[Rfam]
RNA sequence: UACUCAUCGAGACCAGCCGAGGGACAGGCCCAUUGACGCUGGGGCAACCGCUUUUCCAUUCGUGGGAUCGCAUGGUGCCAACUCCUGCGAAGAUUUAUCUUCGACAGAUGAGAG
Numbered sequence: 001u002a003c004u005c006a007u008c009g010a011g012a013c014c015a016g017c018c019g020a021g022g023g024a025c026a027g028g029c030c031c032a033u034u035g036a037c038g039c040u041g042g043g044g045c046a047a048c049c050g051c052u053u054u055u056c057c058a059u060u061c062g063u064g065g066g067a068u069c070g071c072a073u074g075g076u077g078c079c080a081a082c083u084c085c086u087g088c089g090a091a092g093a094u095u096u097a098u099c100u101u102c103g104a105c106a107g108a109u110g111a112g113a114g
Base pairs, nucleotide, nucleotide: 001114003112004111005110006109007108008107013042014041015040016039017038021031022030023029025087026086027085028084043079044078045077046076048075049074050071051070083106088103089102090101091100092099093098